This 73-nucleotide RNA from Orthoflavivirus louisense belongs to the Rfam family "General Flavivirus exoribonuclease-resistant RNA element". From the family's description: The exoribonuclease-resistant RNA elements (xrRNA) are described throughout all groups of flaviviruses. Usually, each virus harbors two xrRNAs, xrRNA1 and xrRNA2, in the beginning of the 3' UTR. The formation of these stem-loops, especially xrRNA1, is vital to ensure resistance against XRN1 activity. The Y-shaped stem-loop is also termed SL II and SL IV, respectively. In order to function as xrRNA, the sequence downstream is needed as well, since the upper loop region forms a pseudoknot (PK) with the single-stranded region directly downstream to its respective hairpin. In some species, the region downstream also forms a small hairpin. In such cases, the PK interactions takes place between the two loop regions. Conserved formation of these structures were observed in mammalian cells but not in mosquito cells, suggesting this region has varying functions in different hosts. In plant-viruses, xrRNA elements have been observed as well, showing some similarities to flaviviral xrRNAs. However, plant-virus xrRNA and flaviviral xrRNA are distinguishable by their underlying three-dimensional folds. The literature on the family includes a 2008 paper in Cell Host Microbe by Pijlman et al., "A highly structured, nuclease-resistant, noncoding RNA produced by flaviviruses is required for pathogenicity".

RNA sequence: ACAAGUCAGACCAGAAAUGCCACCUGAAAGCAUGCUAAAGGUGCUGUCUGUACAUGCCCCAGGAGGACUGGGU
Numbered sequence: 001a002c003a004a005g006u007c008a009g010a011c012c013a014g015a016a017a018u019g020c021c022a023c024c025u026g027a028a029a030g031c032a033u034g035c036u037a038a039a040g041g042u043g044c045u046g047u048c049u050g051u052a053c054a055u056g057c058c059c060c061a062g063g064a065g066g067a068c069u070g071g072g073u
Stems, first nucleotide, its partner, number of pairs: 005053002007050005012019002023041003058072005